This 51-nucleotide RNA sequence from Ramlibacter agri belongs to the Rfam family "Xanthine riboswitch aptamer (NMT1 RNA)".
RNA sequence: GCGCAGAGUAGAAGCAGGCAACGGCGCAAGCCGCGGGUCAUUGCUCUGAUU
Dot-bracket structure: ....((((((....[..((..((((....))))..]))...))))))....
Background: It scores 42 bits against the family's covariance model. The base pairs follow the family's consensus structure, which is taken from published work.